[Rfam]
RNA sequence: GUCAUACUACGGCGCAACGCCCUAAAAAGUAAACGAUGACCCAUAGGGAACUCCAGGGUAAAAUGGUUAUCAAAGAGGAAAUUGUAGCUGACCUGGGACUGCGCGCCCGGGUUGGUGUUUUUU
Numbered sequence: 001g002u003c004a005u006a007c008u009a010c011g012g013c014g015c016a017a018c019g020c021c022c023u024a025a026a027a028a029g030u031a032a033a034c035g036a037u038g039a040c041c042c043a044u045a046g047g048g049a050a051c052u053c054c055a056g057g058g059u060a061a062a063a064u065g066g067u068u069a070u071c072a073a074a075g076a077g078g079a080a081a082u083u084g085u086a087g088c089u090g091a092c093c094u095g096g097g098a099c100u101g102c103g104c105g106c107c108c109g110g111g112u113u114g115g116u117g118u119u120u121u122u123u
Stems, first nucleotide, its partner, number of pairs: 001040005010035002014030002041048002057071004087116011
RNA: Enterobacteria greA leader